Source information
This 96-nucleotide RNA sequence belongs to the Rfam family "SAM-I/IV (S-adenosyl methionine) riboswitch aptamer". On this family, see Weinberg et al., RNA 2008: "The aptamer core of SAM-IV riboswitches mimics the ligand-binding site of SAM-I riboswitches".

[Rfam]
RNA sequence: UUAAAGUAUCAAGAGAAGGAUUAAAUUCCUCUCCAACCUGCCAACUCCGGUAAGGUGGAAAAAAGAUACGGUUAACCAACAAUUAAAGGAGCAAUA
Numbered sequence: 001u002u003a004a005a006g007u008a009u010c011a012a013g014a015g016a017a018g019g020a021u022u023a024a025a026u027u028c029c030u031c032u033c034c035a036a037c038c039u040g041c042c043a044a045c046u047c048c049g050g051u052a053a054g055g056u057g058g059a060a061a062a063a064a065g066a067u068a069c070g071g072u073u074a075a076c077c078a079a080c081a082a083u084u085a086a087a088g089g090a091g092c093a094a095u096a
Stems, first nucleotide, its partner, number of pairs: 006069005015031001017030004032059003037055003040051003045091004071080003
Dot-bracket structure: .....(((((....(.((((......)))))(((..((((((..[[[[))).))).))).....))))).(((....))).......]]]].....

The family has 417 seed sequences and 567 matches in Rfam 15.1.